[Rfam]
RNA sequence: CAGUUAAAAAGCUUGUAGUUGGAUCUUGGAAUCGAGCUGGCAGUCUGCCACGAGGCGAGCCACUGCCUGUCCCAGCCCCUGCCUCUUGAAACCCCCUCAAUGCUCUUAGCUGAGUGUCCCGUGGGGCUUGAAGCAUUUUACUUUGAGAAAAUUAGAGUGUUCAAAGCAGGCCGGCUGCCGGCAUACUGCACCUAGGAAUAAUGGAAUAGGACUCAUUAUAUUUUGCUGGUUUUCGAAAACAGGACCAUGAUUAAGAGGAACGGCCACUAGAGAUGAAAUUCUUGGACUAGUGGAAGAUGGCCUAGAGUGAAAGCAUUUACCAAGAACAUUUUCAUUAAUCAAGAACAAAAGUUGGAGGUUCAAAGACAAUCAGAUACUGUCGUAGUUCUGACCAUAAACAAUGCUGACUGGUGAUGUGGCAGCAUUAUUCCCAUGACCCGCUGGGCAGCUCCCAGGAAACCUGAGUCUUUGGGUUGUGGGGGAGUAUGGUUGCAAAGCUGAAACUUAAAGGAAU
Numbered sequence: 001c002a003g004u005u006a007a008a009a010a011g012c013u014u015g016u017a018g019u020u021g022g023a024u025c026u027u028g029g030a031a032u033c034g035a036g037c038u039g040g041c042a043g044u045c046u047g048c049c050a051c052g053a054g055g056c057g058a059g060c061c062a063c064u065g066c067c068u069g070u071c072c073c074a075g076c077c078c079c080u081g082c083c084u085c086u087u088g089a090a091a092c093c094c095c096c097u098c099a100a101u102g103c104u105c106u107u108a109g110c111u112g113a114g115u116g117u118c119c120c121g122u123g124g125g126g127c128u129u130g131a132a133g134c135a136u137u138u139u140a141c142u143u144u145g146a147g148a149a150a151a152u153u154a155g156a157g158u159g160u161u162c163a164a165a166g167c168a169g170g171c172c173g174g175c176u177g178c179c180g181g182c183a184u185a186c187u188g189c190a191c192c193u194a195g196g197a198a199u200a201a202u203g204g205a206a207u208a209g210g211a212c213u214c215a216u217u218a219u220a221u222u223u224u225g226c227u228g229g230u231u232u233u234c235g236a237a238a239a240c241a242g243g244a245c246c247a248u249g250a251u252u253a254a255g256a257g258g259a260a261c262g263g264c265c266a267c268u269a270g271a272g273a274u275g276a277a278a279u280u281c282u283u284g285g286a287c288u289a290g291u292g293g294a295a296g297a298u299g300g301c302c303u304a305g306a307g308u309g310a311a312a313g314c315a316u317u318u319a320c321c322a323a324g325a326a327c328a329u330u331u332u333c334a335u336u337a338a339u340c341a342a343g344a345a346c347a348a349a350a351g352u353u354g355g356a357g358g359u360u361c362a363a364a365g366a367c368a369a370u371c372a373g374a375u376a377c378u379g380u381c382g383u384a385g386u387u388c389u390g391a392c393c394a395u396a397a398a399c400a401a402u403g404c405u406g407a408c409u410g411g412u413g414a415u416g417u418g419g420c421a422g423c424a425u426u427a428u429u430c431c432c433a434u435g436a437c438c439c440g441c442u443g444g445g446c447a448g449c450u451c452c453c454a455g456g457a458a459a460c461c462u463g464a465g466u467c468u469u470u471g472g473g474u475u476g477u478g479g480g481g482g483a484g485u486a487u488g489g490u491u492g493c494a495a496a497g498c499u500g501a502a503a504c505u506u507a508a509a510g511g512a513a514u
Base pairs, nucleotide, nucleotide: 001478002477009475011346013344014343018339019338020337257333258332259331260330262327265324270281271280272279307314308313351392352391353390354389355388356387361385365381366380367379368378403474404473405472406467407466408465410450411449412448415445417443418442419441420440422438425436426435455460480506481505482504488499489498490497491496
RNA: Eukaryotic small subunit ribosomal RNA, nucleotides 616 to 1129